Description
Shown here is a 177-nucleotide RNA from Actinoplanes regularis, a member of the family "c-di-AMP riboswitch aptamer (ydaO/yuaA leader)". Rfam's curators write: This family represents a conserved RNA structure found upstream of the ydaO and yuaA genes in Bacillus subtilis and related genes in other bacteria. The base pairs follow the family's consensus structure. NCBI's taxonomy places the organism under Bacteria, Actinomycetota, Actinomycetes, Micromonosporaceae, Actinoplanes.

RNA sequence: ACUAUUCAUGAGGCAAUCGGGGGCAGGGACGGGGGAACCACACACUGGUCCUCGACCGGCACACCGUUCGCGGUGGCCGACCGGAGGACCUUGGGGUGAAGCCGCUACCAGCGGCCGGGCAACUUCCUUCCCGCCCGAACCCGACAGCUAACCUCGCAGGCGUGCCGGAGGGAUUCC
Numbered sequence: 001a002c003u004a005u006u007c008a009u010g011a012g013g014c015a016a017u018c019g020g021g022g023g024c025a026g027g028g029a030c031g032g033g034g035g036a037a038c039c040a041c042a043c044a045c046u047g048g049u050c051c052u053c054g055a056c057c058g059g060c061a062c063a064c065c066g067u068u069c070g071c072g073g074u075g076g077c078c079g080a081c082c083g084g085a086g087g088a089c090c091u092u093g094g095g096g097u098g099a100a101g102c103c104g105c106u107a108c109c110a111g112c113g114g115c116c117g118g119g120c121a122a123c124u125u126c127c128u129u130c131c132c133g134c135c136c137g138a139a140c141c142c143g144a145c146a147g148c149u150a151a152c153c154u155c156g157c158a159g160g161c162g163u164g165c166c167g168g169a170g171g172g173a174u175u176c177c
Stems, first nucleotide, its partner, number of pairs: 002028001003026001030156005039093002094142003102114004117136004